[Rfam]
RNA sequence: GCCUGGAACCAAUACAGAUCACUGGUCUUGGGUGUUAAGGACUAGAGGUUAGAGGAGACCC
Numbered sequence: 001g002c003c004u005g006g007a008a009c010c011a012a013u014a015c016a017g018a019u020c021a022c023u024g025g026u027c028u029u030g031g032g033u034g035u036u037a038a039g040g041a042c043u044a045g046a047g048g049u050u051a052g053a054g055g056a057g058a059c060c061c
Base pairs, nucleotide, nucleotide: 001061002040003039008033009031010030011029012028014026015025047060048059049058050057

The family of this 61-nucleotide RNA sequence from Orthoflavivirus banziense is "Flavivirus DB element". Taxonomically the source falls in Orthoflavivirus banziense (Viruses, Orthornavirae, Kitrinoviricota, Amarillovirales). Rfam describes the family as follows. This family represents the flavivirus 3' UTR elements DB1 and DB2. These DB elements are thought to be required for efficient translation. Gene Ontology term of the family: translation.